RNA: serC leader
Organism: Siculibacillus lacustris
Nucleotides: 052
Base pairs, nucleotide, nucleotide: 011028012027013026014025015024016023032047033046034045035044036043037042
Number, partner (000 for none) and nucleotide at each position: 001000c002000g003000g004000c005000g006000g007000g008000a009000c010000a011028c012027c013026c014025u015024u016023c017000c018000c019000c020000a021000c022000c023016g024015a025014a026013g027012g028011g029000c030000a031000c032047c033046c034045a035044u036043c037042u038000g039000a040000a041000a042037g043036g044035a045034u046033g047032g048000u049000c050000u051000g052000a